[Rfam]
RNA sequence: AUUCUCUCUGCUCUGCUCAGUUCUACCUGUUUGUGGUGUAACUGUCGUAUAUAGAGAGGAAAAGAAAUGGAGUUCCAUUUGCACGGCAGAGCGGCCUCUGUUCAUGGCUGCUCUGUUCCUUCAUGAAGCUCUACAAGU
Numbered sequence: 001a002u003u004c005u006c007u008c009u010g011c012u013c014u015g016c017u018c019a020g021u022u023c024u025a026c027c028u029g030u031u032u033g034u035g036g037u038g039u040a041a042c043u044g045u046c047g048u049a050u051a052u053a054g055a056g057a058g059g060a061a062a063a064g065a066a067a068u069g070g071a072g073u074u075c076c077a078u079u080u081g082c083a084c085g086g087c088a089g090a091g092c093g094g095c096c097u098c099u100g101u102u103c104a105u106g107g108c109u110g111c112u113c114u115g116u117u118c119c120u121u122c123a124u125g126a127a128g129c130u131c132u133a134c135a136a137g138u
Stems, first nucleotide, its partner, number of pairs: 002064002005061001007059002011056005019043004024038003073128002076125002081118001088114003092110005

Background:
This 138-nucleotide sequence from Eleutherodactylus coqui belongs to the Rfam family "Small nucleolar RNA SNORA64/SNORA10 family". The literature on the family includes a 1999 paper in EMBO J by Narayanan et al., "Nucleolar localization signals of box H/ACA small nucleolar RNAs". The family's consensus secondary structure is taken from published work. Clan: SNORA64 clan. The family's RNA type in Rfam is H/ACA-box small nucleolar RNA. Taxonomically the source falls in Eleutherodactylus (Eukaryota, Dipnotetrapodomorpha, Anura, Hyloidea).